[Rfam]
RNA sequence: UGCUGUGGAUUAGGCUUUGGCUUAAGGGAAUAUUGUGGCUGAUUUGAUCUUCUAUCCAGACCACUGAAGCUUUCUCCAUAUCAGC
Numbered sequence: 001u002g003c004u005g006u007g008g009a010u011u012a013g014g015c016u017u018u019g020g021c022u023u024a025a026g027g028g029a030a031u032a033u034u035g036u037g038g039c040u041g042a043u044u045u046g047a048u049c050u051u052c053u054a055u056c057c058a059g060a061c062c063a064c065u066g067a068a069g070c071u072u073u074c075u076c077c078a079u080a081u082c083a084g085c
Stems, first nucleotide, its partner, number of pairs: 001083002004080006012072003016068005022063001028057001030055003
A member of the RNA family "mir-1261 microRNA precursor family" from Equus caballus, 85 nucleotides long. It is one of the family's seed sequences. Pairs were carried over by alignment from the consensus structure, which was predicted with RNAalifold. Its family is annotated with RISC complex and miRNA-mediated post-transcriptional gene silencing in the Gene Ontology. Taxonomically the source falls in Equus (Eukaryota, Opisthokonta, Eumetazoa, Chordata).